[Rfam]
RNA sequence: GGCCAGGUUCUUGAUACACACGAAGCACAACCGGCAAUCAACGACGAUUGCCCCUUUUUCAGACGAAGACGUCUC
Numbered sequence: 001g002g003c004c005a006g007g008u009u010c011u012u013g014a015u016a017c018a019c020a021c022g023a024a025g026c027a028c029a030a031c032c033g034g035c036a037a038u039c040a041a042c043g044a045c046g047a048u049u050g051c052c053c054c055u056u057u058u059u060c061a062g063a064c065g066a067a068g069a070c071g072u073c074u075c
Stems, first nucleotide, its partner, number of pairs: 033052007
This 75-nucleotide RNA from Billgrantia gudaonensis belongs to the Rfam family "narK RNA". NCBI's taxonomy places the organism under Bacteria, Pseudomonadota, Gammaproteobacteria, Halomonadaceae, Billgrantia.